SAM riboswitch aptamer (S box leader): a 99-nucleotide RNA from Ruminiclostridium sufflavum. The source organism's lineage runs through Bacteria, Eubacteriales, Oscillospiraceae, Ruminiclostridium and Ruminiclostridium sufflavum. Pairs were carried over by alignment from the consensus structure, which is taken from published work.
RNA sequence: UCCUUAUCAAGAUAGGUGGAGGGAACGGCCCGAUGAAACCUGGCAACCAGCAUUUAUGUAUGGUGCCAAUUCCUGCAGGCUUUGCCUGAAAGAUGAGGG
Numbered sequence: 001u002c003c004u005u006a007u008c009a010a011g012a013u014a015g016g017u018g019g020a021g022g023g024a025a026c027g028g029c030c031c032g033a034u035g036a037a038a039c040c041u042g043g044c045a046a047c048c049a050g051c052a053u054u055u056a057u058g059u060a061u062g063g064u065g066c067c068a069a070u071u072c073c074u075g076c077a078g079g080c081u082u083u084g085c086c087u088g089a090a091a092g093a094u095g096a097g098g099g
Stems, first nucleotide, its partner, number of pairs: 001099008015040003021031003027073002042067004047063002049059001051058002071091001076088005